Source information
This 179-nucleotide RNA sequence from Exiguobacterium artemiae belongs to the Rfam family "Lysine riboswitch aptamer". Lineage of the source: Bacteria > Bacillota > Bacilli > Exiguobacterium > Exiguobacterium artemiae.
RNA sequence: CCGACAGAUAGAGGCGCGGAUGACAUCAGUAGCAACACUUAUUCAAGGCAAGCAUGCCAAGUGAUGUGAAAGGGGAAAUCCGCCGAAGUGAACAAGAAAAUGCUUUUUCUUGAUUGCUGGUACAACGGUUAAGAUCCGUUGUACUGCCGAAACCCACGUUUCGGAGCGCUAUCUUACGU
Dot-bracket structure: .....((((((....((((((..(.......(((.((((....................)))).)))......)...))))))...(((((.((((((........)))))).)))))((((((((((.......)))))))))).(((((((....)))))))....)))))).....